Source information
A member of the RNA family "Bacillus sRNA ncr1575" from Guptibacillus hwajinpoensis, 222 nucleotides long. The family's consensus secondary structure is taken from published work.

RNA sequence: AAAUUGAAAUGGAAGGGAAUGGUUAAGAAGCGAUGAAAAACUAAUCUUAUUUUUCUAGGUCAACUUUCGAAUAGCGAAAUUGAUUUACUGGAGAAUAGGAUUAGUCUGCCGUUUUUUACCAUGUGUAAUAGCUUGAAGAGGCUUAUUUAGUUUGCUUUCUUCCAAGCUAACCCUAUGGAAAUCGGAAUGACUUGUCUCUCCAGUUAGAUGGGAGGCUUUUUU
Numbered sequence: 001a002a003a004u005u006g007a008a009a010u011g012g013a014a015g016g017g018a019a020u021g022g023u024u025a026a027g028a029a030g031c032g033a034u035g036a037a038a039a040a041c042u043a044a045u046c047u048u049a050u051u052u053u054u055c056u057a058g059g060u061c062a063a064c065u066u067u068c069g070a071a072u073a074g075c076g077a078a079a080u081u082g083a084u085u086u087a088c089u090g091g092a093g094a095a096u097a098g099g100a101u102u103a104g105u106c107u108g109c110c111g112u113u114u115u116u117u118a119c120c121a122u123g124u125g126u127a128a129u130a131g132c133u134u135g136a137a138g139a140g141g142c143u144u145a146u147u148u149a150g151u152u153u154g155c156u157u158u159c160u161u162c163c164a165a166g167c168u169a170a171c172c173c174u175a176u177g178g179a180a181a182u183c184g185g186a187a188u189g190a191c192u193u194g195u196c197u198c199u200c201c202a203g204u205u206a207g208a209u210g211g212g213a214g215g216c217u218u219u220u221u222u
Base pairs, nucleotide, nucleotide: 016117017116018115019114023111030105031104042103043102044101045100046099047098048097049096050095051094052093053092054091058085059084060083061082062081063080065078066077125172131167132166133165134164135163137161194216195215196214197213198212199211200210

The match comes from Rfam's covariance-model search (66 bits). Taxonomically the source falls in Guptibacillus (Bacteria, Bacillota, Caryophanales, Guptibacillaceae).